[Rfam]
RNA sequence: ACUUGUUUUGCGGGAGAGAGGGGCGCCUUGCGCCUCCGCCGAAGGCGCAAGCUCCCAUCAUCGCUCAGGCAUACAGGACCGCAAAACCAUU
Number, nucleotide and partner (000 for none) at each position: 001a000002c000003u000004u000005g000006u086007u085008u084009u083010g082011c081012g080013g079014g000015a000016g000017a000018g000019a000020g036021g035022g034023g033024c000025g000026c000027c000028u000029u000030g000031c000032g000033c023034c022035u021036c020037c000038g070039c069040c068041g066042a065043a000044g000045g064046c063047g062048c000049a000050a000051g059052c000053u000054c000055c000056c000057a000058u000059c051060a000061u000062c047063g046064c045065u042066c041067a000068g040069g039070c038071a000072u000073a000074c000075a000076g000077g000078a000079c013080c012081g011082c010083a009084a008085a007086a006087c000088c000089a000090u000091u000
Background:
A member of the RNA family "Glycine riboswitch aptamer" from Acidovorax delafieldii, 91 nucleotides long. The pairing is the family consensus, mapped onto this sequence.